[Rfam]
RNA sequence: AGCAAAGUAAAUAACAUGUGUUAAGUGCCAGAAGGAUGGGAAGUCGCCUCUGGACGAAACGAAAGUGCAGUGUGUUAUUGCCUCCGUUGCA
Numbered sequence: 001a002g003c004a005a006a007g008u009a010a011a012u013a014a015c016a017u018g019u020g021u022u023a024a025g026u027g028c029c030a031g032a033a034g035g036a037u038g039g040g041a042a043g044u045c046g047c048c049u050c051u052g053g054a055c056g057a058a059a060c061g062a063a064a065g066u067g068c069a070g071u072g073u074g075u076u077a078u079u080g081c082c083u084c085c086g087u088u089g090c091a
Base pairs, nucleotide, nucleotide: 002090003089004088005087010079011078012077013076014075015074016073017072018071019069020068021067025055026054028053029052030051031050032049034048035047039085040084041083043081059066060065